[Rfam]
RNA sequence: UCCUCGCUCGAAGAAUCGCAAUCGAGGUUCACAGACAGAGAAUGUACCCCCUGGUGUUUCUCAUCAUUUACAAUCAUACUUCGGGAGAAAGUCCCCGGACAACCUCAUCCUGCUCGUGCGUUUGAGGUCGCCGAAAGGCGCCGCCAUAAAAGCAAGCUUCGCGGCUGACCUCCCCUUCAUUCCCCUGCCCUCCUAUCCCUUUCCUUCGCCGUCUGUACUCUCUGACAGCACAUGCUAAGUCAGCGAUGCGAGCUCGACAGAGACCCGAUGGAUGAUGAUACGAGUCCGAGCUUUGCCCGGGCCCGCUUUCGCAGUGACUGACGCUUGUCGGCUUCAGGGAGGAGGCGUGGAUUGAGUGGUUUGAGGAAAGGCCUUAUGAUGCAAGGUGGACACUUUUUCGUCAAAAUUGAUAGAUAUGCGAUUGCUACCCGGACCUACAGCUCGUCGCAAGGCCUGUAGUGGGGACGGAGUGGUAACUCAAUGGGGCUUAUUCUUGAGGCGAGG
Numbered sequence: 001u002c003c004u005c006g007c008u009c010g011a012a013g014a015a016u017c018g019c020a021a022u023c024g025a026g027g028u029u030c031a032c033a034g035a036c037a038g039a040g041a042a043u044g045u046a047c048c049c050c051c052u053g054g055u056g057u058u059u060c061u062c063a064u065c066a067u068u069u070a071c072a073a074u075c076a077u078a079c080u081u082c083g084g085g086a087g088a089a090a091g092u093c094c095c096c097g098g099a100c101a102a103c104c105u106c107a108u109c110c111u112g113c114u115c116g117u118g119c120g121u122u123u124g125a126g127g128u129c130g131c132c133g134a135a136a137g138g139c140g141c142c143g144c145c146a147u148a149a150a151a152g153c154a155a156g157c158u159u160c161g162c163g164g165c166u167g168a169c170c171u172c173c174c175c176u177u178c179a180u181u182c183c184c185c186u187g188c189c190c191u192c193c194u195a196u197c198c199c200u201u202u203c204c205u206u207c208g209c210c211g212u213c214u215g216u217a218c219u220c221u222c223u224g225a226c227a228g229c230a231c232a233u234g235c236u237a238a239g240u241c242a243g244c245g246a247u248g249c250g251a252g253c254u255c256g257a258c259a260g261a262g263a264c265c266c267g268a269u270g271g272a273u274g275a276u277g278a279u280a281c282g283a284g285u286c287c288g289a290g291c292u293u294u295g296c297c298c299g300g301g302c303c304c305g306c307u308u309u310c311g312c313a314g315u316g317a318c319u320g321a322c323g324c325u326u327g328u329c330g331g332c333u334u335c336a337g338g339g340a341g342g343a344g345g346c347g348u349g350g351a352u353u354g355a356g357u358g359g360u361u362u363g364a365g366g367a368a369a370g371g372c373c374u375u376a377u378g379a380u381g382c383a384a385g386g387u388g389g390a391c392a393c394u395u396u397u398u399c400g401u402c403a404a405a406a407u408u409g410a411u412a413g414a415u416a417u418g419c420g421a422u423u424g425c426u427a428c429c430c431g432g433a434c435c436u437a438c439a440g441c442u443c444g445u446c447g448c449a450a451g452g453c454c455u456g457u458a459g460u461g462g463g464g465a466c467g468g469a470g471u472g473g474u475a476a477c478u479c480a481a482u483g484g485g486g487c488u489u490a491u492u493c494u495u496g497a498g499g500c501g502a503g504g
Base pairs, nucleotide, nucleotide: 002504003503004502005501006500007499008497009496010495011494014423015422016421017420018419019418022085023083024082025081026080027079028078038062039061040060041059042058089489090488091487093486094485095484096483129140130139131138132137332378334376343374344373345372346371357367360364425473426472427471428470430468
RNA: RNase MRP